[Rfam]
RNA sequence: GAUGCAUCCGGAUGAAGUCUUCAUCGGCCGUUAUCGCGUUAUAUUGGGUCGGUGGGACUUUCGUCCGUUUGCAAG
Numbered sequence: 001g002a003u004g005c006a007u008c009c010g011g012a013u014g015a016a017g018u019c020u021u022c023a024u025c026g027g028c029c030g031u032u033a034u035c036g037c038g039u040u041a042u043a044u045u046g047g048g049u050c051g052g053u054g055g056g057a058c059u060u061u062c063g064u065c066c067g068u069u070u071g072c073a074a075g
Stems, first nucleotide, its partner, number of pairs: 003073004009067007016059005022054002025051005
This 75-nucleotide RNA sequence from Camponotus floridanus belongs to the Rfam family "mir-278 microRNA precursor family". A search with the family's covariance model found it, with a score of 68 bits. A reference for the family is Stark et al. (2007), "Systematic discovery and characterization of fly microRNAs using 12 Drosophila genomes", Genome Res. The family's consensus secondary structure was predicted with RNAalifold. Its family is annotated with RISC complex and miRNA-mediated post-transcriptional gene silencing in the Gene Ontology.